[Rfam]
RNA sequence: UAAACCCGGUUAAUCACGAAGACCUAAGUUCCACUUGGGUGGCUAUUAGUGAUUGAUGGGGUUUA
Numbered sequence: 001u002a003a004a005c006c007c008g009g010u011u012a013a014u015c016a017c018g019a020a021g022a023c024c025u026a027a028g029u030u031c032c033a034c035u036u037g038g039g040u041g042g043c044u045a046u047u048a049g050u051g052a053u054u055g056a057u058g059g060g061g062u063u064u065a
Base pairs, nucleotide, nucleotide: 001065002064003063004062005061006060007059009057010056011055012054013053015051016050017049022040023039024038025037026036027035028034029033